[Rfam]
RNA: mir-5928 microRNA precursor family
RNA sequence: GGUCCAAAUAAAAAGUAGAGUAGAUUAGAAGGAUCAUCUGAUCCUACUAAACUAUUCUACUUCAAGUUUGUGCCU
Dot-bracket structure: (((.(((((...(((((((((((.((((.(.((((....)))).).)))).)))))))))))...))))).))).
Numbered sequence: 001g002g003u004c005c006a007a008a009u010a011a012a013a014a015g016u017a018g019a020g021u022a023g024a025u026u027a028g029a030a031g032g033a034u035c036a037u038c039u040g041a042u043c044c045u046a047c048u049a050a051a052c053u054a055u056u057c058u059a060c061u062u063c064a065a066g067u068u069u070g071u072g073c074c075u
Stems, first nucleotide, its partner, number of pairs: 001074003005070005013062011025050004030045001032043004